[Rfam]
RNA sequence: GCCGGUGAUCGGUAGUGGCCUCCGCAGCGCGCUGCGUGGGCUUCGAUCGAUGACCAGC
Number, nucleotide and partner (000 for none) at each position: 001g058002c057003c000004g055005g054006u053007g000008a000009u050010c049011g048012g047013u046014a000015g000016u000017g042018g041019c040020c039021u038022c000023c036024g035025c034026a033027g032028c000029g000030c000031g000032c027033u026034g025035c024036g023037u000038g021039g020040g019041c018042u017043u000044c000045g000046a013047u012048c011049g010050a009051u000052g000053a006054c005055c004056a000057g002058c001
Overview:
Rfam assigns this 58-nucleotide RNA from Brevibacterium rongguiense to the family "Actino-pnp RNA". The base pairs follow the family's consensus structure, which is taken from published work. NCBI's taxonomy places the organism under Bacteria, Bacillati, Actinomycetes, Micrococcales, Brevibacterium. A search with the family's covariance model found it, with a score of 51 bits.